RNA sequence: UUCCAGUGAGGAAGCGAACCCUGAUGAUAGGAAGUGCCGUAUGACACUCUUAUACGCAGCAGUUGU
Numbered sequence: 001u002u003c004c005a006g007u008g009a010g011g012a013a014g015c016g017a018a019c020c021c022u023g024a025u026g027a028u029a030g031g032a033a034g035u036g037c038c039g040u041a042u043g044a045c046a047c048u049c050u051u052a053u054a055c056g057c058a059g060c061a062g063u064u065g066u
Base pairs, nucleotide, nucleotide: 014060015059031051032050033048034047035046036045
Small nucleolar RNA U49: a 66-nucleotide RNA from Papaver nudicaule.
The base pairs follow the family's consensus structure, which was predicted with CMfinder.
By type it is a C/D-box small nucleolar RNA.
The source organism's lineage runs through Eukaryota, Streptophyta, Spermatophyta, Magnoliopsida and Papaver.